This 144-nucleotide sequence from Scaptodrosophila lebanonensis belongs to the Rfam family "Small nucleolar RNA psi28S-3378".
Gene Ontology terms of the family: nucleolus and RNA processing.
For this family Rfam cites "Evolution of genes and genomes on the Drosophila phylogeny" (Clark et al., Nature, 2007).
The organism belongs to Scaptodrosophila, within Eukaryota.
It is annotated as an H/ACA-box small nucleolar RNA.
psi28S-3378 is a member of the H/ACA class of snoRNA.
RNA sequence: AGCACCGAAAUCAGUAACCUUGCGACUGCUAACCUAGCAUGGCGACUACGCUUGGGUGCUAAAAUUGAACUCGCUAUAAUGCCGCAUACUAAUCAGAGCAUACCAAUAACGCCUUAGGAUGCUUAUGGCCUUGUUUUGAGACAA
Dot-bracket structure: ((((((......(((..((.(((.............))).))..))).......)))))).........((((..((((.((((...........((((((.(.(.........).).)))))).)))).))))..))))....
Numbered sequence: 001a002g003c004a005c006c007g008a009a010a011u012c013a014g015u016a017a018c019c020u021u022g023c024g025a026c027u028g029c030u031a032a033c034c035u036a037g038c039a040u041g042g043c044g045a046c047u048a049c050g051c052u053u054g055g056g057u058g059c060u061a062a063a064a065u066u067g068a069a070c071u072c073g074c075u076a077u078a079a080u081g082c083c084g085c086a087u088a089c090u091a092a093u094c095a096g097a098g099c100a101u102a103c104c105a106a107u108a109a110c111g112c113c114u115u116a117g118g119a120u121g122c123u124u125a126u127g128g129c130c131u132u133g134u135u136u137u138g139a140g141a142c143a144a
Stems, first nucleotide, its partner, number of pairs: 001060006013047003018042002021039003070140004076134004081129004096124006103117001105115001